[Rfam]
RNA: mir-395 microRNA precursor family
Organism: Helianthus annuus
RNA sequence: AUGUUCCUUAGAGUUCCUCUAAACACUUCACUUCACUGGAAUGUCUUCUUUUAGAUUUCCUAUUGAAGUGUUUGGAGGAACUCCAAGAGCCGC
Numbered sequence: 001a002u003g004u005u006c007c008u009u010a011g012a013g014u015u016c017c018u019c020u021a022a023a024c025a026c027u028u029c030a031c032u033u034c035a036c037u038g039g040a041a042u043g044u045c046u047u048c049u050u051u052u053a054g055a056u057u058u059c060c061u062a063u064u065g066a067a068g069u070g071u072u073u074g075g076a077g078g079a080a081c082u083c084c085a086a087g088a089g090c091c092g093c
Base pairs, nucleotide, nucleotide: 005089007087008086009085011083012082013081014080015079016078017077018076019075020074021073022072023071024070025069026068027067028066029065030064032062